[Rfam]
RNA sequence: GUGCAUCUUGCAGGAAUUGAACCUGUAAAUUUACCAAUUAUGAGUUGGGCGCUUUAACCAUCCAGCCAUGAUGC
Numbered sequence: 001g002u003g004c005a006u007c008u009u010g011c012a013g014g015a016a017u018u019g020a021a022c023c024u025g026u027a028a029a030u031u032u033a034c035c036a037a038u039u040a041u042g043a044g045u046u047g048g049g050c051g052c053u054u055u056a057a058c059c060a061u062c063c064a065g066c067c068a069u070g071a072u073g074c
Base pairs, nucleotide, nucleotide: 003074004073005072006071007070010026011025012024013023014022040069041068042067044066045065046064047063048062049061051059
Dot-bracket structure: ..(((((..(((((.......))))).............(((.((((((.(.......).))))))))))))))

Rfam assigns this 74-nucleotide sequence from Sorghum bicolor to the family "Plastid-ycf2 5UTR RNA".
Rfam's curators write: Plastid ycf2 is a non-coding RNA (ncRNA) recognised in plastids.
Pairs were carried over by alignment from the consensus structure, which was predicted with LocARNA.
It scores 85 bits against the family's covariance model.